[Rfam]
Nucleotides: 130
Stems, first nucleotide, its partner, number of pairs: 004080005009022005023051012054073005098128003103124005109119002112116001
Number, partner (000 for none) and nucleotide at each position: 001000g002000a003000g004080g005079c006078u007077u008076u009022u010021g011020u012019c013018a014000u015000g016000a017000g018013u019012g020011g021010c022009a023051c024050a025049c026048g027047u028046a029045g030044g031043g032042c033041a034040a035000c036000u037000u038000g039000u040034u041033u042032g043031c044030u045029c046028u047027g048026u049025g050024u051023g052000c053000a054073g055072a056071a057070u058069c059000a060000a061000u062000a063000u064000c065000a066000a067000g068000a069058g070057a071056u072055u073054u074000c075000a076008a077007a078006a079005g080004c081000a082000u083000a084000a085000u086000u087000u088000u089000u090000u091000g092000g093000u094000g095000c096000u097000u098128g099127g100126g101000c102000a103124g104123c105122u106121g107120g108000u109119g110118a111000u112116c113000a114000u115000u116112g117000c118110u119109c120107u121106u122105g123104g124103c125000a126100c127099c128098c129000u130000u
Record summary:
The family of this 130-nucleotide sequence from Heterocephalus glaber is "U11 spliceosomal RNA". The family's RNA type in Rfam is spliceosomal small nuclear RNA.